[Rfam]
RNA sequence: GUUGUUCGAGGUGGUAAAAUUCGUUGCAACCACGCACCCAUUGGGUCAAAAGAGAUGCAGGAGAGGCGACGCCUGCCGAGUAAC
Numbered sequence: 001g002u003u004g005u006u007c008g009a010g011g012u013g014g015u016a017a018a019a020u021u022c023g024u025u026g027c028a029a030c031c032a033c034g035c036a037c038c039c040a041u042u043g044g045g046u047c048a049a050a051a052g053a054g055a056u057g058c059a060g061g062a063g064a065g066g067c068g069a070c071g072c073c074u075g076c077c078g079a080g081u082a083a084c
Stems, first nucleotide, its partner, number of pairs: 001084008011033005023070005035052001036046004057076005
The family of this 84-nucleotide RNA is "skipping-rope RNA".